The family of this 62-nucleotide RNA sequence from Jingmen Crocidura shantungensis pestivirus 1 is "Pestivirus 3' UTR SLI". The source organism's lineage runs through Viruses, Riboviria, Orthornavirae, Flasuviricetes and Orthopestivirus. A reference for the family is Deng and Brock (1993), "5' and 3' untranslated regions of pestivirus genome: primary and secondary structure analyses", Nucleic Acids Res.

RNA sequence: AGCUGGUUAGGUCGUAAAAGCUUGACGUCCUUUGUAGGACUAAAGCUGAUCUAAACUGGCCC
Numbered sequence: 001a002g003c004u005g006g007u008u009a010g011g012u013c014g015u016a017a018a019a020g021c022u023u024g025a026c027g028u029c030c031u032u033u034g035u036a037g038g039a040c041u042a043a044a045g046c047u048g049a050u051c052u053a054a055a056c057u058g059g060c061c062c
Base pairs, nucleotide, nucleotide: 002060003059004058005057006056007055008054009052010051011050012049022044023043027040028039029038030037031036